[Rfam]
RNA: Archaeal large subunit ribosomal RNA, nucleotides 1129 to 1416
Organism: Absidia repens
RNA sequence: GAGUCCACCAUCAUUGCGAGUCUUUGGGUGUAGAAACCCAUGGGCGGAAGGAAACUGACCAAGAUAUGAAACCUUUACCGGUGGCAAUAUCCUCCAGCAAGGACGUUUUAUACUGAACUGACUGAGAGAAAGCAAUGAUGAUGGGACCCGAAAGAUGGUGAACUAUACUUGAAUAGGGUGAAGCCAGAGGAAACUCUGGUGGAAGCUCGUAGCGAUUCUGACGUGCAAAUCGAUCGUCAAAUUUGAGUAUAGGGGCGAAAGACUAAUCGAACCAUCUAGUAGCUGGUU
Numbered sequence: 001g002a003g004u005c006c007a008c009c010a011u012c013a014u015u016g017c018g019a020g021u022c023u024u025u026g027g028g029u030g031u032a033g034a035a036a037c038c039c040a041u042g043g044g045c046g047g048a049a050g051g052a053a054a055c056u057g058a059c060c061a062a063g064a065u066a067u068g069a070a071a072c073c074u075u076u077a078c079c080g081g082u083g084g085c086a087a088u089a090u091c092c093u094c095c096a097g098c099a100a101g102g103a104c105g106u107u108u109u110a111u112a113c114u115g116a117a118c119u120g121a122c123u124g125a126g127a128g129a130a131a132g133c134a135a136u137g138a139u140g141a142u143g144g145g146a147c148c149c150g151a152a153a154g155a156u157g158g159u160g161a162a163c164u165a166u167a168c169u170u171g172a173a174u175a176g177g178g179u180g181a182a183g184c185c186a187g188a189g190g191a192a193a194c195u196c197u198g199g200u201g202g203a204a205g206c207u208c209g210u211a212g213c214g215a216u217u218c219u220g221a222c223g224u225g226c227a228a229a230u231c232g233a234u235c236g237u238c239a240a241a242u243u244u245g246a247g248u249a250u251a252g253g254g255g256c257g258a259a260a261g262a263c264u265a266a267u268c269g270a271a272c273c274a275u276c277u278a279g280u281a282g283c284u285g286g287u288u
Stems, first nucleotide, its partner, number of pairs: 005144003009140009020045004026039004049056002147286002150283001154276006163252011174240001176208004183200007212237004217233002220231002254264002